[Rfam]
RNA sequence: UCUUGUACAAGUAUUCGGCUCACUCAAGGGCGGUCUGGCUCAUUCCCCUAAAGGGGGUGAGGCUUAUGACAACAUUUGAAGGUCUAUCUCUCAUGAUAGCUUUUGGCGUAUUCAUUAUCGCCCUGUUGUCUUAUAUAGACAAAAAAUAGACCCCCUUGAGCCUUGGACAGUUUAAGGGUGGUCUAUUCGCAAAGAAUUCCUAUUUGAGUCAGCGCCAGGGUGUUGGUGACACAACUCCCUGG
Number, nucleotide and partner (000 for none) at each position: 001u000002c208003u207004u206005g205006u000007a203008c000009a201010a000011g199012u000013a000014u000015u000016c181017g000018g179019c178020u177021c176022a000023c160024u159025c158026a157027a156028g155029g154030g153031c000032g000033g151034u150035c149036u148037g000038g000039c000040u060041c059042a058043u000044u057045c056046c055047c054048c053049u000050a000051a000052a000053g048054g047055g046056g045057g044058u042059g041060a040061g000062g000063c000064u000065u000066a000067u000068g130069a129070c128071a127072a126073c125074a124075u000076u000077u000078g000079a000080a000081g000082g000083u000084c000085u000086a000087u000088c000089u000090c000091u000092c000093a000094u000095g000096a000097u000098a000099g000100c000101u000102u000103u000104u000105g122106g121107c120108g119109u000110a000111u000112u000113c000114a000115u000116u000117a000118u000119c108120g107121c106122c105123c000124u074125g073126u072127u071128g070129u069130c068131u000132u000133a000134u000135a000136u000137a000138g000139a000140c000141a000142a000143a000144a000145a000146a000147u000148a036149g035150a034151c033152c000153c030154c029155c028156u027157u026158g025159a024160g023161c000162c000163u000164u000165g000166g000167a000168c000169a000170g000171u000172u000173u000174a000175a000176g021177g020178g019179u018180g000181g016182u000183c000184u194185a000186u000187u000188c000189g000190c000191a000192a000193a000194g184195a000196a000197u000198u000199c011200c000201u009202a000203u007204u000205u005206g004207a003208g002209u000210c000211a000212g000213c000214g000215c242216c241217a240218g239219g238220g237221u000222g235223u234224u233225g000226g000227u000228g000229a000230c000231a000232c000233a224234a223235c222236u000237c220238c219239c218240u217241g216242g215
RNA: BsrG